[Rfam]
RNA sequence: GUUUUGAAGAAGAAACUGCCGUUUCUCACCUUACAGUUAUGCUAGUAAGGUUAAAGAUAAUUUGUUAAAAAGUAACAAUAGGACGGCGUUUGUCGUCCUUUUUAUUUUAU
Number, nucleotide and partner (000 for none) at each position: 001g000002u000003u000004u000005u000006g000007a000008a000009g000010a000011a026012g025013a024014a023015a022016c021017u000018g000019c000020c000021g016022u015023u014024u013025c012026u011027c000028a051029c050030c049031u000032u000033a046034c045035a043036g042037u000038u000039a000040u000041g000042c036043u035044a000045g034046u033047a000048a000049g030050g029051u028052u000053a000054a000055a000056g000057a000058u000059a000060a000061u000062u000063u000064g000065u000066u000067a000068a000069a000070a000071a000072g000073u000074a000075a000076c000077a000078a000079u000080a000081g000082g097083a096084c095085g094086g093087c092088g000089u000090u000091u000092g087093u086094c085095g084096u083097c082098c000099u000100u000101u000102u000103u000104a000105u000106u000107u000108u000109a000110u000
Shown here is a 110-nucleotide sequence from Clostridium sp. BL8, a member of the family "Ribosomal protein L20 leader". A search with the family's covariance model found it, with a score of 59 bits. Rfam links the family to the GO term regulation of gene expression. The organism belongs to Clostridium, within Bacteria. A reference for the family is Zengel and Lindahl (1994), "Diverse mechanisms for regulating ribosomal protein synthesis in Escherichia coli", Prog Nucleic Acid Res Mol Biol. Rfam's curators write: This family is a putative r-protein leader autoregulatory structure found in B. subtilis and other low-GC Gram-positive bacteria. It is located in the 5' untranslated regions of mRNAs encoding initiation factor 3 followed by ribosomal proteins L35 and L20 (infC-rpmI-rplT). A Rho-independent transcription terminator structure that is probably involved in regulation is included at the 3' end. The family's RNA type in Rfam is cis-regulatory leader.